[Rfam]
RNA sequence: AAACUGCUGUGAGGCCAGAUCAGAAGCACUAAUGGUGAGGCCAUGUCAGAUUCCAACGAAUCUGCAAAUUCUGCU
Numbered sequence: 001a002a003a004c005u006g007c008u009g010u011g012a013g014g015c016c017a018g019a020u021c022a023g024a025a026g027c028a029c030u031a032a033u034g035g036u037g038a039g040g041c042c043a044u045g046u047c048a049g050a051u052u053c054c055a056a057c058g059a060a061u062c063u064g065c066a067a068a069u070u071c072u073g074c075u
Stems, first nucleotide, its partner, number of pairs: 010043001013042004019075001021073005027037002047064007
RNA: Mammalian CPEB3 ribozyme